A member of the RNA family "MIR2655 microRNA precursor family" from Trifolium subterraneum, 250 nucleotides long. The source organism's lineage runs through Eukaryota, Streptophyta, Spermatophyta, Fabales and Trifolium.

[Rfam]
RNA sequence: CCCUUAUCUUUUAAAAGUUUCAAGUUGGUCCCUUAUAUUUAUUUUAGGUUUCAAGUUGGUCCCUUCCGUCAUUUUUUUAACUAUUUCCGUUAAAUUUGGACACGUGGCAAACUAAUUUGGACACGUGGCACACUUGAACAUGUGACACGUCCAGAAUUAACGGUAACAGUAAAAAAAUUGAUGGAAUGGACCAACUUGAAACCUAAAAAAAAGAUAAGGGACCAACUUGAAACUUUUAAAAGAUAAGGGA
Numbered sequence: 001c002c003c004u005u006a007u008c009u010u011u012u013a014a015a016a017g018u019u020u021c022a023a024g025u026u027g028g029u030c031c032c033u034u035a036u037a038u039u040u041a042u043u044u045u046a047g048g049u050u051u052c053a054a055g056u057u058g059g060u061c062c063c064u065u066c067c068g069u070c071a072u073u074u075u076u077u078u079a080a081c082u083a084u085u086u087c088c089g090u091u092a093a094a095u096u097u098g099g100a101c102a103c104g105u106g107g108c109a110a111a112c113u114a115a116u117u118u119g120g121a122c123a124c125g126u127g128g129c130a131c132a133c134u135u136g137a138a139c140a141u142g143u144g145a146c147a148c149g150u151c152c153a154g155a156a157u158u159a160a161c162g163g164u165a166a167c168a169g170u171a172a173a174a175a176a177a178u179u180g181a182u183g184g185a186a187u188g189g190a191c192c193a194a195c196u197u198g199a200a201a202c203c204u205a206a207a208a209a210a211a212a213g214a215u216a217a218g219g220g221a222c223c224a225a226c227u228u229g230a231a232a233c234u235u236u237u238a239a240a241a242g243a244u245a246a247g248g249g250a
Stems, first nucleotide, its partner, number of pairs: 002248007023227003027223003031219006038212003042208002045205003